This 72-nucleotide sequence from Conger conger belongs to the Rfam family "Small nucleolar RNA SNORD19". Lineage of the source: Eukaryota > Chordata > Teleostomi > Euteleostomi > Conger. Its family is annotated with RNA processing and nucleolus in the Gene Ontology.
RNA sequence: GAGAAAGGAUGACUCAAUGGAAUCUGAAAUCAGUGAAGACUUAAAUAAUCCAACUCUGAUCUCAUCAUUUUG
Number, nucleotide and partner (000 for none) at each position: 001g063002a062003g061004a060005a000006a000007g000008g000009a000010u000011g000012a000013c000014u000015c000016a000017a000018u000019g000020g000021a000022a000023u000024c000025u000026g000027a000028a000029a000030u000031c000032a000033g000034u000035g000036a000037a000038g000039a000040c000041u000042u000043a000044a000045a000046u000047a000048a000049u000050c000051c000052a000053a000054c000055u000056c000057u000058g000059a000060u004061c003062u002063c001064a000065u000066c000067a000068u000069u000070u000071u000072g000
On this family, see Huttenhofer et al., EMBO J 2001: "RNomics: an experimental approach that identifies 201 candidates for novel, small, non-messenger RNAs in mouse". It scores 38 bits against the family's covariance model.